[Rfam]
RNA sequence: AGAGGUUGCAAGUCUGAACCACAGCAGAAGCACUUGUGGUGCAGCCCUGUCAGAUCCCAAUGAAUCUGUAAAUUCUGCU
Numbered sequence: 001a002g003a004g005g006u007u008g009c010a011a012g013u014c015u016g017a018a019c020c021a022c023a024g025c026a027g028a029a030g031c032a033c034u035u036g037u038g039g040u041g042c043a044g045c046c047c048u049g050u051c052a053g054a055u056c057c058c059a060a061u062g063a064a065u066c067u068g069u070a071a072a073u074u075c076u077g078c079u
Base pairs, nucleotide, nucleotide: 016047019044023079024078025077026076027075028074029073030042031041032040051068052067053066054065055064057062
Mammalian CPEB3 ribozyme: a 79-nucleotide RNA sequence from Alligator mississippiensis. The base pairs follow the family's consensus structure, which is taken from published work. Gene Ontology term of the family: RNA nuclease activity. NCBI's taxonomy places the organism under Eukaryota, Deuterostomia, Sauria, Archosauria, Alligator. For this family Rfam cites "A genomewide search for ribozymes reveals an HDV-like sequence in the human CPEB3 gene" (Salehi-Ashtiani et al., Science, 2006).